A member of the RNA family "tRNA" from Phytomyza sp. near pastinacae 'Psp', 66 nucleotides long.
RNA sequence: UCUAAUAUGGCAGAUUAGUGCAAUGGAUUUAAGCUCCAUAUAUAAAGUAUUUUACUUUUAUUAGAA
Numbered sequence: 001u002c003u004a005a006u007a008u009g010g011c012a013g014a015u016u017a018g019u020g021c022a023a024u025g026g027a028u029u030u031a032a033g034c035u036c037c038a039u040a041u042a043u044a045a046a047g048u049a050u051u052u053u054a055c056u057u058u059u060a061u062u063a064g065a066a
Stems, first nucleotide, its partner, number of pairs: 001065007010021003023039005044058005

For this family Rfam cites "tRNAscan-SE: a program for improved detection of transfer RNA genes in genomic sequence" (Lowe and Eddy, Nucleic Acids Res, 1997). The family's consensus secondary structure is taken from published work. Rfam links the family to the GO term triplet codon-amino acid adaptor activity.